[Rfam]
RNA: Small nucleolar RNA SNORA69
RNA sequence: AAAGCAGGUUGCAAUUACAGUGCUUUCUUUUGUUGAAAUACUGACAUUAUCCUGCUGACAGAAAAUCUGUUGAUCGUUUUUUGAUUUUGCCAUUUAGAUCAGUGGAACAAAAUAAAAGUCCAGAGUUAAAUCCACACACCUAUGGACACCU
Numbered sequence: 001a002a003a004g005c006a007g008g009u010u011g012c013a014a015u016u017a018c019a020g021u022g023c024u025u026u027c028u029u030u031u032g033u034u035g036a037a038a039u040a041c042u043g044a045c046a047u048u049a050u051c052c053u054g055c056u057g058a059c060a061g062a063a064a065a066u067c068u069g070u071u072g073a074u075c076g077u078u079u080u081u082u083g084a085u086u087u088u089g090c091c092a093u094u095u096a097g098a099u100c101a102g103u104g105g106a107a108c109a110a111a112a113u114a115a116a117a118g119u120c121c122a123g124a125g126u127u128a129a130a131u132c133c134a135c136a137c138a139c140c141u142a143u144g145g146a147c148a149c150c151u
Base pairs, nucleotide, nucleotide: 003056004055005054006053007052008051018043019042020041021040022039024037025036026035067145068144069143070142072140076139083132084131085130086129087128089126090125093122